[Rfam]
RNA sequence: UUGGACGCUCAAGGCCACAGCAGGAGUGCUCGUGGCGUUGUCAGAUUCCGACGAAUCUGUGGAUUCUGCU
Numbered sequence: 001u002u003g004g005a006c007g008c009u010c011a012a013g014g015c016c017a018c019a020g021c022a023g024g025a026g027u028g029c030u031c032g033u034g035g036c037g038u039u040g041u042c043a044g045a046u047u048c049c050g051a052c053g054a055a056u057c058u059g060u061g062g063a064u065u066c067u068g069c070u
Base pairs, nucleotide, nucleotide: 014036015035016034019070020069021068022067023066024065025064026033027032042059043058044057045056046055047054048053
Dot-bracket structure: .............[[[..(((((((((....))]]].....(((((((....)))))))....)))))))